Description:
This 101-nucleotide RNA from Zhenhengia yiwuensis belongs to the Rfam family "Purine riboswitch aptamer".
[Rfam]
RNA sequence: CAAAAAGCAAAUCUGAUUUUUCGUAUAUACUUGGCGAUUGGGCCGAGAGUAUCUACCCGUUUACCGUAAAUAAGCGGACUACGAGGAAACUUAAAUUAGUA
Numbered sequence: 001c002a003a004a005a006a007g008c009a010a011a012u013c014u015g016a017u018u019u020u021u022c023g024u025a026u027a028u029a030c031u032u033g034g035c036g037a038u039u040g041g042g043c044c045g046a047g048a049g050u051a052u053c054u055a056c057c058c059g060u061u062u063a064c065c066g067u068a069a070a071u072a073a074g075c076g077g078a079c080u081a082c083g084a085g086g087a088a089a090c091u092u093a094a095a096u097u098a099g100u101a
Stems, first nucleotide, its partner, number of pairs: 018087008030047006057077007

The organism belongs to Zhenhengia, within Bacteria.